[Rfam]
RNA: Group II catalytic intron D1-D4-7
RNA sequence: UAUUCUAUCCGUUCGGAAUAUCCCUACCAUAGCAUGCGAUUCUGGUAACGGAAUGGUGUGAAGCCUAUGGGACAACGUGGAGAAAACAUGUAACCAGAACCUGUCAAUCUGCAAGGGAAAGGAUGUCAUGGAGAAACAUAUGUUGAAUCA
Numbered sequence: 001u002a003u004u005c006u007a008u009c010c011g012u013u014c015g016g017a018a019u020a021u022c023c024c025u026a027c028c029a030u031a032g033c034a035u036g037c038g039a040u041u042c043u044g045g046u047a048a049c050g051g052a053a054u055g056g057u058g059u060g061a062a063g064c065c066u067a068u069g070g071g072a073c074a075a076c077g078u079g080g081a082g083a084a085a086a087c088a089u090g091u092a093a094c095c096a097g098a099a100c101c102u103g104u105c106a107a108u109c110u111g112c113a114a115g116g117g118a119a120a121g122g123a124u125g126u127c128a129u130g131g132a133g134a135a136a137c138a139u140a141u142g143u144u145g146a147a148u149c150a
Stems, first nucleotide, its partner, number of pairs: 002019005028069005033060005039054006086104003090100002109116002127142004